[Rfam]
RNA sequence: CGUGUGGUGUCCGACCUUUGGCUCGGAUAGCGACACGGCCCAAAUCAUUGAGGU
Numbered sequence: 001c002g003u004g005u006g007g008u009g010u011c012c013g014a015c016c017u018u019u020g021g022c023u024c025g026g027a028u029a030g031c032g033a034c035a036c037g038g039c040c041c042a043a044a045u046c047a048u049u050g051a052g053g054u
Stems, first nucleotide, its partner, number of pairs: 001037005007031002011026004016021001